Notes: mraW RNA: a 96-nucleotide RNA sequence from Cellulomonas sp. JH27-2.
[Rfam]
RNA sequence: AGCAUGCCGCCCGGUGAGACCUCCUCCCGUCCGCUCUGACGCACUUCCCCGGCGUCAGAGGGUCGGUGGGGGAUCUGGUCGGACGGCGGAGGGGCC
Dot-bracket structure: ..........(((((..((.(((((.(((.((.(((((((((.........))))))))))).))).))))).))..)))))..............